RNA: Small nucleolar RNA SNORD99
Organism: Echeneis naucrates
RNA sequence: UUCGAUCCAUGAUGACACUUCAUAUAAUGUGGACUGUUGGAUGAAGCUUGCGGAUAUGGGACUGAGAUCAGAC
Dot-bracket structure: ((.((..............................................................)).)).